RNA sequence: GAGUGACAAGAUGCCAUACCAUCUUUCGGGACUGACACAUCAAUGGAGAACUAUUACUGAUCAUUA
Numbered sequence: 001g002a003g004u005g006a007c008a009a010g011a012u013g014c015c016a017u018a019c020c021a022u023c024u025u026u027c028g029g030g031a032c033u034g035a036c037a038c039a040u041c042a043a044u045g046g047a048g049a050a051c052u053a054u055u056a057c058u059g060a061u062c063a064u065u066a
Base pairs, nucleotide, nucleotide: 002065003064004063005062006061

The family of this 66-nucleotide RNA from Oncorhynchus tshawytscha is "Small nucleolar RNA SNORD2". For this family Rfam cites "Identification of a novel box C/D snoRNA from mouse nucleolar cDNA library" (Zhou et al., Gene, 2004). Pairs were carried over by alignment from the consensus structure, which was predicted with WAR. The family's RNA type in Rfam is C/D-box small nucleolar RNA. The organism belongs to Oncorhynchus, within Eukaryota.